Shown here is a 92-nucleotide RNA sequence from Streptomyces albireticuli, a member of the family "che1 RNA". NCBI's taxonomy places the organism under Bacteria, Actinomycetota, Actinomycetes, Streptomycetaceae, Streptomyces.
[Rfam]
RNA sequence: GGGACAGGGGGGUCUCCGCCCCGGCGGCGGUGCCUGUCCCCGUGGUCGCGCACACGCGCGGCCUUGUGGUUGUCGCUCGGGGGUGAUCGCCG
Numbered sequence: 001g002g003g004a005c006a007g008g009g010g011g012g013u014c015u016c017c018g019c020c021c022c023g024g025c026g027g028c029g030g031u032g033c034c035u036g037u038c039c040c041c042g043u044g045g046u047c048g049c050g051c052a053c054a055c056g057c058g059c060g061g062c063c064u065u066g067u068g069g070u071u072g073u074c075g076c077u078c079g080g081g082g083g084u085g086a087u088c089g090c091c092g
Stems, first nucleotide, its partner, number of pairs: 001040008014032001016030005044063008